[Rfam]
RNA sequence: UUAGGGAUGAUGAAAAAACAGACGGAUUCCCUAUGAUUUCAAUUCGUGAUUAUUACAACCAGCUACUUUUGACCUAC
Number, nucleotide and partner (000 for none) at each position: 001u000002u076003a075004g074005g073006g000007a000008u000009g000010a000011u000012g000013a000014a000015a000016a000017a000018a000019c000020a000021g000022a000023c000024g000025g000026a000027u000028u000029c000030c000031c000032u000033a000034u000035g000036a000037u000038u000039u000040c000041a000042a000043u000044u000045c000046g000047u000048g000049a000050u000051u000052a000053u000054u000055a000056c000057a000058a000059c000060c000061a000062g000063c000064u000065a000066c000067u000068u000069u000070u000071g000072a000073c005074c004075u003076a002077c000
The family of this 77-nucleotide RNA sequence is "Small nucleolar RNA R12". A search with the family's covariance model found it, with a score of 67 bits. The literature on the family includes a 2003 paper in Nucleic Acids Res by Chen et al., "The high diversity of snoRNAs in plants: identification and comparative study of 120 snoRNA genes from Oryza sativa". The base pairs follow the family's consensus structure, which was predicted with PFOLD. About the family: snoR12 is a C/D box small nucleolar RNA, which acts as a methylation guide for 25S ribosomal RNA in plants. snoR12 has been alternatively named snoZ44 in Arabidopsis and snoZ131 in rice.